[Rfam]
RNA sequence: AGGCUGUACAGCCAGGACCUGACGGUGGGGUGGCUUCGGGCCUUCUGCAGGUCUCCCACGUUGUGGCCCAGCAGCGCAGUCA
Number, nucleotide and partner (000 for none) at each position: 001a000002g081003g080004c079005u078006g077007u076008a000009c074010a000011g072012c071013c000014a000015g068016g067017a000018c065019c000020u063021g062022a061023c060024g059025g000026u058027g057028g056029g055030g054031u000032g053033g052034c051035u050036u049037c047038g046039g045040g000041c000042c000043u000044u000045c039046u038047g037048c000049a036050g035051g034052u033053c032054u030055c029056c028057c027058a026059c024060g023061u022062u021063g020064u000065g018066g000067c016068c015069c000070a000071g012072c011073a000074g009075c000076g007077c006078a005079g004080u003081c002082a000

Rfam assigns this 82-nucleotide RNA sequence from Macaca mulatta to the family "mir-662 microRNA precursor family". The sequence is in the family's curated seed alignment. The literature on the family includes a 2008 paper in BMC Genomics by Yue et al., "Identification of novel homologous microRNA genes in the rhesus macaque genome". Rfam links the family to the GO terms miRNA-mediated post-transcriptional gene silencing and RISC complex. Taxonomically the source falls in Macaca (Eukaryota, Teleostomi, Haplorrhini, Cercopithecoidea).